A member of the RNA family "sRNA-Xcc1" from Xylella fastidiosa, 88 nucleotides long. The family's RNA type in Rfam is small RNA. The source organism's lineage runs through Bacteria, Pseudomonadota, Gammaproteobacteria, Lysobacteraceae and Xylella fastidiosa.

[Rfam]
RNA sequence: GUCGGGAGGGCGGCAGCCAUACAACACCCUGUAAAGGGGAAAGCUGCCCGCCGUCUACUUCCGGUUUUUGACCUCCCGACACCUACGG
Numbered sequence: 001g002u003c004g005g006g007a008g009g010g011c012g013g014c015a016g017c018c019a020u021a022c023a024a025c026a027c028c029c030u031g032u033a034a035a036g037g038g039g040a041a042a043g044c045u046g047c048c049c050g051c052c053g054u055c056u057a058c059u060u061c062c063g064g065u066u067u068u069u070g071a072c073c074u075c076c077c078g079a080c081a082c083c084u085a086c087g088g
Stems, first nucleotide, its partner, number of pairs: 001080009012048004017043001027038003050065004